A member of the RNA family "Molybdenum/Tungsten riboswitch aptamer (Moco RNA motif)" from Acetobacterium bakii, 126 nucleotides long.
[Rfam]
RNA sequence: AAUUGUAGAACUCCGAAGUUUAGUUUUUCUAAGGAUCUGUUAACAGGUCUAUGGAUCUAAACCGGUAGGGUAUAACUGGAAACGGUUAUGUCUCCCAGUGUGGAAAAGGGGCUUUGACAAGGUUAU
Numbered sequence: 001a002a003u004u005g006u007a008g009a010a011c012u013c014c015g016a017a018g019u020u021u022a023g024u025u026u027u028u029c030u031a032a033g034g035a036u037c038u039g040u041u042a043a044c045a046g047g048u049c050u051a052u053g054g055a056u057c058u059a060a061a062c063c064g065g066u067a068g069g070g071u072a073u074a075a076c077u078g079g080a081a082a083c084g085g086u087u088a089u090g091u092c093u094c095c096c097a098g099u100g101u102g103g104a105a106a107a108g109g110g111g112c113u114u115u116g117a118c119a120a121g122g123u124u125a126u
Base pairs, nucleotide, nucleotide: 003120004119006117011111012110013109014108018062019061020060021059022058023057027055028054029053033050034049035048036047037046038045039044068093069092070091071090072089073088074087075086076085077084078083094103095102